[Rfam]
RNA sequence: CUGUGUCCUGCUUCAACAGUGUUUGAACGGAACAG
Numbered sequence: 001c002u003g004u005g006u007c008c009u010g011c012u013u014c015a016a017c018a019g020u021g022u023u024u025g026a027a028c029g030g031a032a033c034a035g
Stems, first nucleotide, its partner, number of pairs: 001035004006031003010028001012027005017021001
Dot-bracket structure: ((((.(((.(.((((((...).)))))))))))))

A member of the RNA family "Iron response element I" from Echinops telfairi, 35 nucleotides long. Lineage of the source: Eukaryota > Deuterostomia > Mammalia > Tenrecinae > Echinops. Rfam 15.1 lists 6,829 matches to the family in 599 species. Its family is annotated with response to iron ion in the Gene Ontology.